[Rfam]
RNA sequence: AGCCCCGGAGAGAGAGGCAGGGUCUGAUCCACAGCCUCCAUAGCAGCUGUUGAUCAGCCAUUGCCUUUCUUUCUUUCUCUC
Numbered sequence: 001a002g003c004c005c006c007g008g009a010g011a012g013a014g015a016g017g018c019a020g021g022g023u024c025u026g027a028u029c030c031a032c033a034g035c036c037u038c039c040a041u042a043g044c045a046g047c048u049g050u051u052g053a054u055c056a057g058c059c060a061u062u063g064c065c066u067u068u069c070u071u072u073c074u075u076u077c078u079c080u081c
Stems, first nucleotide, its partner, number of pairs: 008073013022059001024057006032049004